Source information
The family of this 73-nucleotide RNA from Setaria digitata is "mir-1175 microRNA precursor family". The family's consensus secondary structure was predicted with RNAalifold. Lineage of the source: Eukaryota > Protostomia > Rhabditida > Setariidae > Setaria.

RNA sequence: UCACGAAAGUGGAGGAUUAGAUCUGCACUAAACAUUUUAAGUCAGUGAGAUUCUUAUUCCUCCACUUACCUGU
Number, nucleotide and partner (000 for none) at each position: 001u000002c000003a000004c000005g000006a000007a067008a066009g065010u064011g063012g062013a061014g060015g059016a058017u056018u000019a000020g000021a000022u050023c049024u000025g000026c047027a046028c045029u044030a000031a000032a000033c000034a000035u000036u000037u000038u000039a000040a000041g000042u000043c000044a029045g028046u027047g026048a000049g023050a022051u000052u000053c000054u000055u000056a017057u000058u016059c015060c014061u013062c012063c011064a010065c009066u008067u007068a000069c000070c000071u000072g000073u000